[Rfam]
The family of this 48-nucleotide RNA from [Collinsella] massiliensis is "DUF3800-XI RNA". The base pairs follow the family's consensus structure, which is taken from published work. The family's RNA type in Rfam is small RNA. Taxonomically the source falls in Enorma (Bacteria, Actinomycetota, Coriobacteriia, Coriobacteriales).

RNA sequence: UGGGCUGGCCGAGAGGCCCUGGCCCACCCAAAGGCGGGGAUAUUCCCC
Numbered sequence: 001u002g003g004g005c006u007g008g009c010c011g012a013g014a015g016g017c018c019c020u021g022g023c024c025c026a027c028c029c030a031a032a033g034g035c036g037g038g039g040a041u042a043u044u045c046c047c048c
Base pairs, nucleotide, nucleotide: 001026002025003024004023005022006021007018008017009016010015